The record is a 128-nucleotide RNA from Cucumis sativus, which matches "Small nucleolar RNA snoR111" in Rfam. By type it is an H/ACA-box small nucleolar RNA.
[Rfam]
RNA sequence: GAAACGGUGCUUGAGAUCAUUGAUUAUCUCUUCCGCCGCCAAGAACAGUGAGGUAUAGCGAAGGCCGAGAUAUCGUUUCAGUCGUCAUUUUUUUAUCGGUUGGCGAUUCGAUUGUUGCUCGUCCACAU
Numbered sequence: 001g002a003a004a005c006g007g008u009g010c011u012u013g014a015g016a017u018c019a020u021u022g023a024u025u026a027u028c029u030c031u032u033c034c035g036c037c038g039c040c041a042a043g044a045a046c047a048g049u050g051a052g053g054u055a056u057a058g059c060g061a062a063g064g065c066c067g068a069g070a071u072a073u074c075g076u077u078u079c080a081g082u083c084g085u086c087a088u089u090u091u092u093u094u095a096u097c098g099g100u101u102g103g104c105g106a107u108u109c110g111a112u113u114g115u116u117g118c119u120c121g122u123c124c125a126c127a128u
Stems, first nucleotide, its partner, number of pairs: 006040004011035001013032004063124002066121004072112004081107007089099002